[Rfam]
RNA sequence: UCCCAAAGACCUUGUCAGGGUGAUCUUCAUUUUCCCACAAGCUUGCCUGUUACGUCCUUGGAAUAUCAAUACUCCUCGCCUGUGUCCACCUUGGUGGUUGGUUUCCGUUCUGGAGACCAUUUGCACAAUGAUUGGUAGUUUUUAUCGAUCUCUUAGAGGAGUCUUGGCAUCAUCUGAGUUGAACCAUUUUCCUCACUGUGGAAUGGUUCGUAGUAUUGAAGCCAACAUUC
Numbered sequence: 001u002c003c004c005a006a007a008g009a010c011c012u013u014g015u016c017a018g019g020g021u022g023a024u025c026u027u028c029a030u031u032u033u034c035c036c037a038c039a040a041g042c043u044u045g046c047c048u049g050u051u052a053c054g055u056c057c058u059u060g061g062a063a064u065a066u067c068a069a070u071a072c073u074c075c076u077c078g079c080c081u082g083u084g085u086c087c088a089c090c091u092u093g094g095u096g097g098u099u100g101g102u103u104u105c106c107g108u109u110c111u112g113g114a115g116a117c118c119a120u121u122u123g124c125a126c127a128a129u130g131a132u133u134g135g136u137a138g139u140u141u142u143u144a145u146c147g148a149u150c151u152c153u154u155a156g157a158g159g160a161g162u163c164u165u166g167g168c169a170u171c172a173u174c175u176g177a178g179u180u181g182a183a184c185c186a187u188u189u190u191c192c193u194c195a196c197u198g199u200g201g202a203a204u205g206g207u208u209c210g211u212a213g214u215a216u217u218g219a220a221g222c223c224a225a226c227a228u229u230c
Base pairs, nucleotide, nucleotide: 003061004060005059006058018048019047020046021045022044023043025041026040027039072161073160074159075158076157077156080130083127084126085125087123100118101117102116103115104114105113106112132148133147134146135145136144137143138142165224166223167222168221170219171218172217180210181209182208183207184206187203188202189201190200